A member of the RNA family "Bacillaceae-1 RNA" from Bacillus sp. V5-8f, 67 nucleotides long.
Nucleotides: 067
Stems, first nucleotide, its partner, number of pairs: 012048006025039005053066004
Number, partner (000 for none) and nucleotide at each position: 001000g002000c003000u004000g005000g006000g007000c008000g009000c010000u011000g012048g013047c014046c015045g016044a017043u018000u019000a020000a021000g022000a023000g024000c025039g026038c027037c028036a029035c030000g031000u032000u033000c034000u035029g036028u037027g038026g039025c040000a041000a042000c043017a044016u045015c046014g047013g048012c049000a050000c051000u052000a053066g054065u055064a056063c057000c058000u059000c060000c061000a062000u063056g064055u065054a066053c067000g
Description:
NCBI's taxonomy places the organism under Bacteria, Bacillati, Bacillota, Bacilli, Bacillus. The family's RNA type in Rfam is small RNA. A search with the family's covariance model found it, with a score of 38 bits.